[Rfam]
Nucleotides: 117
Stems, first nucleotide, its partner, number of pairs: 004012002014039004019034004046076006054069004080112008089103004
Number, partner (000 for none) and nucleotide at each position: 001000a002000a003000c004012g005011u006000c007000u008000g009000u010000c011005a012004c013000u014039g015038a016037u017036c018000u019034c020033u021032c022031c023000c024000a025000u026000c027000c028000c029000c030000u031022g032021g033020a034019g035000c036017g037016a038015u039014c040000u041000c042000c043000c044000c045000c046076g047075g048074a049073g050072c051071g052000a053000c054069g055068a056067c057066c058000c059000c060000u061000c062000c063000c064000c065000a066057g067056g068055u069054c070000c071051c072050g073049c074048u075047c076046c077000c078000c079000u080112g081111g082110c083109c084108c085107c086106g087105c088000c089103g090102a091101c092100c093000u094000c095000c096000c097000c098000c099000u100092g101091g102090u103089c104000u105087g106086c107085g108084g109083g110082g111081c112080u113000u114000u115000u116000u117000a